[Rfam]
RNA sequence: AAUGCAGGUCGUUCUAUCGCUCCGGUUUAUGCCGGGGAGGAAAGUCCGGGCAACGCAGAGCAUCCCGCUUCCUAACGGGAAGGCGCCGGGGAUUGAAGACCUGGGCGACGGAAAGUGCCACAGAAAAUAUACCGUCCCGGCUUGCCGGGAUAAGGGUGAAAACGUGAGGUAAGAGCUCACGAUCUUUCCGGGCGACCGGAAAUUUGGUAAACCCCGGGAGUUGAAAGACCAAAUAGGUCCCGGUCAUGGUGCUGCUCGUACUCGAUCCUGCUCAGGCAGGAUUAGCCGGGAUGGGUAGGUCGUUAGAAACAAACGGCAACGUUUGUUCCAGAUUAAUGAUAGAAGCCCGGGAAACCGGGAACAGAACCCGGCUUACAGACCUGCAUUUUUU
Numbered sequence: 001a002a003u004g005c006a007g008g009u010c011g012u013u014c015u016a017u018c019g020c021u022c023c024g025g026u027u028u029a030u031g032c033c034g035g036g037g038a039g040g041a042a043a044g045u046c047c048g049g050g051c052a053a054c055g056c057a058g059a060g061c062a063u064c065c066c067g068c069u070u071c072c073u074a075a076c077g078g079g080a081a082g083g084c085g086c087c088g089g090g091g092a093u094u095g096a097a098g099a100c101c102u103g104g105g106c107g108a109c110g111g112a113a114a115g116u117g118c119c120a121c122a123g124a125a126a127a128u129a130u131a132c133c134g135u136c137c138c139g140g141c142u143u144g145c146c147g148g149g150a151u152a153a154g155g156g157u158g159a160a161a162a163c164g165u166g167a168g169g170u171a172a173g174a175g176c177u178c179a180c181g182a183u184c185u186u187u188c189c190g191g192g193c194g195a196c197c198g199g200a201a202a203u204u205u206g207g208u209a210a211a212c213c214c215c216g217g218g219a220g221u222u223g224a225a226a227g228a229c230c231a232a233a234u235a236g237g238u239c240c241c242g243g244u245c246a247u248g249g250u251g252c253u254g255c256u257c258g259u260a261c262u263c264g265a266u267c268c269u270g271c272u273c274a275g276g277c278a279g280g281a282u283u284a285g286c287c288g289g290g291a292u293g294g295g296u297a298g299g300u301c302g303u304u305a306g307a308a309a310c311a312a313a314c315g316g317c318a319a320c321g322u323u324u325g326u327u328c329c330a331g332a333u334u335a336a337u338g339a340u341a342g343a344a345g346c347c348c349g350g351g352a353a354a355c356c357g358g359g360a361a362c363a364g365a366a367c368c369c370g371g372c373u374u375a376c377a378g379a380c381c382u383g384c385a386u387u388u389u390u391u
Base pairs, nucleotide, nucleotide: 001387002386003385004384005383006382007381008380009379010378011376012344013343014342015341016340017339018338020037021036022035023034024033025032026031042374043373044372046371047370048369049368050367051223052222053221054220061270063219064218065217066216067215068082069081070080071079072078083109084107085106086105087104110214111213115212116211117208118207119206132155133154134151135150136149137148138147139146140145163181164180165179166178167177168176185202186201187200188199189198190197191196227301228300229299230298237292238291239290240289241288242287308327309326310325311324312323313322314321315320
RNA: Bacterial RNase P class A